[Rfam]
RNA sequence: GUGACGCUGAAGUCCCAGUGGUCGUCGGGAUCGUAGGUGGACCGGUUGGUCAUGUGGUCGCCGUCGGCCACCACCCCCAGCACGACCUUGUCGCCGUACUUGCCCGCGCCCACUUUCUCGGCUUUGCCGUGCGCCAUCAGGCAGAUCCGGUCGGCGGGGUCCCCGGCGCGGACGAUGACGUCGCCGGGCGCGAAUUCCUGCUGCUCGAACCGGUCGGCCAGCGCGGCCAGCGCCUCCUCGUCGUCAAGCUCGCGAAGCAGCGCCAAUUCCCGCAGUUCCUGCGGGAUGACCCGGAUCGCGGCGCCGACGUUGGUGAACUCGACCCGGCCGUCGCCGAGCGUGUACGUGAGGCGUCGGUUCACCCGGUAGGUGCCCGCGGAUACCUCCACCCAGGGCAGCAUCCGCAACAGCCAGCGUGGCGAGAUGCCCUGCAUCUGCGGCUCGGACUUGGUGGUGGUGGCCAGGUUUCGAGCGGCCUCGGUACUGAGACUGAGC
Numbered sequence: 001g002u003g004a005c006g007c008u009g010a011a012g013u014c015c016c017a018g019u020g021g022u023c024g025u026c027g028g029g030a031u032c033g034u035a036g037g038u039g040g041a042c043c044g045g046u047u048g049g050u051c052a053u054g055u056g057g058u059c060g061c062c063g064u065c066g067g068c069c070a071c072c073a074c075c076c077c078c079a080g081c082a083c084g085a086c087c088u089u090g091u092c093g094c095c096g097u098a099c100u101u102g103c104c105c106g107c108g109c110c111c112a113c114u115u116u117c118u119c120g121g122c123u124u125u126g127c128c129g130u131g132c133g134c135c136a137u138c139a140g141g142c143a144g145a146u147c148c149g150g151u152c153g154g155c156g157g158g159g160u161c162c163c164c165g166g167c168g169c170g171g172a173c174g175a176u177g178a179c180g181u182c183g184c185c186g187g188g189c190g191c192g193a194a195u196u197c198c199u200g201c202u203g204c205u206c207g208a209a210c211c212g213g214u215c216g217g218c219c220a221g222c223g224c225g226g227c228c229a230g231c232g233c234c235u236c237c238u239c240g241u242c243g244u245c246a247a248g249c250u251c252g253c254g255a256a257g258c259a260g261c262g263c264c265a266a267u268u269c270c271c272g273c274a275g276u277u278c279c280u281g282c283g284g285g286a287u288g289a290c291c292c293g294g295a296u297c298g299c300g301g302c303g304c305c306g307a308c309g310u311u312g313g314u315g316a317a318c319u320c321g322a323c324c325c326g327g328c329c330g331u332c333g334c335c336g337a338g339c340g341u342g343u344a345c346g347u348g349a350g351g352c353g354u355c356g357g358u359u360c361a362c363c364c365g366g367u368a369g370g371u372g373c374c375c376g377c378g379g380a381u382a383c384c385u386c387c388a389c390c391c392a393g394g395g396c397a398g399c400a401u402c403c404g405c406a407a408c409a410g411c412c413a414g415c416g417u418g419g420c421g422a423g424a425u426g427c428c429c430u431g432c433a434u435c436u437g438c439g440g441c442u443c444g445g446a447c448u449u450g451g452u453g454g455u456g457g458u459g460g461c462c463a464g465g466u467u468u469c470g471a472g473c474g475g476c477c478u479c480g481g482u483a484c485u486g487a488g489a490c491u492g493a494g495c
Stems, first nucleotide, its partner, number of pairs: 006390001008388002011385002018328002021325001025322005031316002038313001040311003048305003053300001054233002058229001060227005066110003077102001079100002082097003086093001118221001120219001122217002127212001129210002133205001135203002139199003143196002150191001154189002158185003162177001166173001235295003240290006249283001251281002254278001256277003260271001262269001329342003352378003356374002360372004391431007399423001401421001403418003437476002440473001442471005447465006488495001